[Rfam]
RNA sequence: GACCUAAACCAUAGAUUUAUCUAUUGGCAUGGUCACAAAUCGUUAGGCAUGAAAAACCCGUUAUCAGGGCGUGCCUAACGUUAUAGGGGGAAACUCCUAUAGGGCUUUCGAGCCU
Numbered sequence: 001g002a003c004c005u006a007a008a009c010c011a012u013a014g015a016u017u018u019a020u021c022u023a024u025u026g027g028c029a030u031g032g033u034c035a036c037a038a039a040u041c042g043u044u045a046g047g048c049a050u051g052a053a054a055a056a057c058c059c060g061u062u063a064u065c066a067g068g069g070c071g072u073g074c075c076u077a078a079c080g081u082u083a084u085a086g087g088g089g090g091a092a093a094c095u096c097c098u099a100u101a102g103g104g105c106u107u108u109c110g111a112g113c114c115u
Base pairs, nucleotide, nucleotide: 001034002033003032004031009027010026011025012023013022014021041080042079043078044077045076046075047074048073049072050071051070057069058068059067082101083100084099085098086097087096088095089094102115103114104113105112106111

Notes:
The record is a 115-nucleotide RNA, which matches "LOOT RNA" in Rfam. Rfam classes the family as a small RNA. The sequence is in the family's curated seed alignment.